[Rfam]
RNA sequence: UUUGUGAUGCUAAUAUGGUCUUGUCAAUGUUUAGGGGCAAAGGCCUGAUUAUGCAGAUGCUUGGUGUAAGCUUAUGCUUGUACAACUUUUGCUAUUGGCCUCCACCCCUAAAUCUUGGCAAGACCUAAUUAGCCCACAAC
Numbered sequence: 001u002u003u004g005u006g007a008u009g010c011u012a013a014u015a016u017g018g019u020c021u022u023g024u025c026a027a028u029g030u031u032u033a034g035g036g037g038c039a040a041a042g043g044c045c046u047g048a049u050u051a052u053g054c055a056g057a058u059g060c061u062u063g064g065u066g067u068a069a070g071c072u073u074a075u076g077c078u079u080g081u082a083c084a085a086c087u088u089u090u091g092c093u094a095u096u097g098g099c100c101u102c103c104a105c106c107c108c109u110a111a112a113u114c115u116u117g118g119c120a121a122g123a124c125c126u127a128a129u130u131a132g133c134c135c136a137c138a139a140c
Stems, first nucleotide, its partner, number of pairs: 002139005009133006017125011029113009041101003045098002048096001050094002053092004064083008

This 140-nucleotide RNA from Physcomitrium patens belongs to the Rfam family "MIR904 microRNA precursor family". Gene Ontology terms of the family: miRNA-mediated post-transcriptional gene silencing and RISC complex. Rfam 15.1 lists 4 matches to the family in 2 species. The family's consensus secondary structure was predicted with RNAalifold.